RNA sequence: GAGUGUGUCUGCUUGACGAGUCUAACCGAGCAUCGGGGAAGGCAUAGGGAAACCGACAUGGCCGCAGUGCGUUCUACGUACCAGGGCCGCCGUGUUCAAGCGCGGGGAGUCGAGCGGACACGACCCGAAUCCGGACGAUCUACACGAUGGCAAGGUGAAGCGUGGCGAAAGCUGCGUGGAGGCCUGUUAGGGAUGGUGUCCUACAAUACCCUCCCGUGACCAGUGUGUAGGGGUGAAAGGCCCAUCGAGUCCGGCAACAGCUGGUU
Numbered sequence: 001g002a003g004u005g006u007g008u009c010u011g012c013u014u015g016a017c018g019a020g021u022c023u024a025a026c027c028g029a030g031c032a033u034c035g036g037g038g039a040a041g042g043c044a045u046a047g048g049g050a051a052a053c054c055g056a057c058a059u060g061g062c063c064g065c066a067g068u069g070c071g072u073u074c075u076a077c078g079u080a081c082c083a084g085g086g087c088c089g090c091c092g093u094g095u096u097c098a099a100g101c102g103c104g105g106g107g108a109g110u111c112g113a114g115c116g117g118a119c120a121c122g123a124c125c126c127g128a129a130u131c132c133g134g135a136c137g138a139u140c141u142a143c144a145c146g147a148u149g150g151c152a153a154g155g156u157g158a159a160g161c162g163u164g165g166c167g168a169a170a171g172c173u174g175c176g177u178g179g180a181g182g183c184c185u186g187u188u189a190g191g192g193a194u195g196g197u198g199u200c201c202u203a204c205a206a207u208a209c210c211c212u213c214c215c216g217u218g219a220c221c222a223g224u225g226u227g228u229a230g231g232g233g234u235g236a237a238a239g240g241c242c243c244a245u246c247g248a249g250u251c252c253g254g255c256a257a258c259a260g261c262u263g264g265u266u
Stems, first nucleotide, its partner, number of pairs: 005121013020043004026036003047054002060088004067081004091104004124264002127261001131254006140230007148222003151218001153185004160177007190215004195211002198209002232242003

Archaeal large subunit ribosomal RNA: a 266-nucleotide part of an RNA from Halococcus morrhuae. The sequence is in the family's curated seed alignment. On this family, see Yusupov et al., Science 2001: "Crystal structure of the ribosome at 5.5 A resolution". Gene Ontology terms of the family: structural constituent of ribosome and ribosome. The family's consensus secondary structure is taken from published work. Taxonomically the source falls in Halococcus (Archaea, Methanobacteriati, Methanobacteriota, Halobacteriales).